[Rfam]
RNA sequence: UUGCAUGAUGGAUGUUGUUUUGAUCCAUUUUUCUUGUGGGGUGUCAAUAUAUCCAUGUCAUGCUAGAGUAAAACUCUCUGGAGGUAUCAGGGCAUCCAGUUAUGAAGUACAGACUGAGGUGUAGUAUAUUUCUCCUACAUGU
Number, nucleotide and partner (000 for none) at each position: 001u000002u000003g063004c062005a061006u060007g059008a058009u000010g000011g000012a000013u000014g000015u000016u000017g000018u000019u000020u000021u000022g045023a044024u040025c039026c038027a000028u000029u000030u000031u000032u000033c000034u000035u000036g000037u000038g026039g025040g024041g000042u000043g000044u023045c022046a000047a000048u000049a000050u000051a000052u000053c000054c000055a000056u000057g000058u008059c007060a006061u005062g004063c003064u000065a000066g000067a000068g000069u000070a000071a000072a000073a000074c000075u000076c000077u000078c000079u000080g135081g134082a133083g132084g000085u000086a000087u000088c000089a000090g000091g000092g122093c121094a000095u000096c118097c116098a115099g114100u113101u112102a000103u000104g000105a000106a000107g000108u000109a000110c000111a000112g101113a100114c099115u098116g097117a000118g096119g000120u000121g093122u092123a000124g000125u000126a000127u000128a000129u000130u000131u000132c083133u082134c081135c080136u000137a000138c000139a000140u000141g000142u000
A member of the RNA family "Small nucleolar RNA U109" from Leptobrachium leishanense, 142 nucleotides long. Rfam 15.1 lists 1,405 matches to the family in 622 species. A reference for the family is Gu et al. (2005), "A novel experimental approach for systematic identification of box H/ACA snoRNAs from eukaryotes", Nucleic Acids Res. Lineage of the source: Eukaryota > Vertebrata > Tetrapoda > Megophryidae > Leptobrachium. Gene Ontology terms of the family: RNA processing and nucleolus.